[Rfam]
A member of the RNA family "ylbH leader" from Paenibacillus uliginis, 128 nucleotides long.
RNA sequence: AGAACAAAAUCCCUGUAGAAAACCUUUAAUCUACAGGGAUUUUGUUCAGGAACCUCCGAGGAGGUUCCUUCAUGGGAGAGGAGAAACCGGACGAAGAGCUUAUGGGGAAACGUAAGUCUUCUCCGCGG
Numbered sequence: 001a002g003a004a005c006a007a008a009a010u011c012c013c014u015g016u017a018g019a020a021a022a023c024c025u026u027u028a029a030u031c032u033a034c035a036g037g038g039a040u041u042u043u044g045u046u047c048a049g050g051a052a053c054c055u056c057c058g059a060g061g062a063g064g065u066u067c068c069u070u071c072a073u074g075g076g077a078g079a080g081g082a083g084a085a086a087c088c089g090g091a092c093g094a095a096g097a098g099c100u101u102a103u104g105g106g107g108a109a110a111c112g113u114a115a116g117u118c119u120u121c122u123c124c125g126c127g128g
Base pairs, nucleotide, nucleotide: 011038012037013036014035015034016033017032018031019030045076046075047074048073050067051066052065053064054063055062088125089124090123091122093121094120095119096118098117099116100115101114102113
Source information:
Gene Ontology term of the family: regulation of gene expression. Taxonomically the source falls in Paenibacillus uliginis (Bacteria, Bacillati, Paenibacillaceae, Paenibacillus). By type it is a cis-regulatory leader. This family is a putative regulatory RNA structure that is found upstream of the ylbH gene in B. subtilis and related low GC Gram-positive bacteria.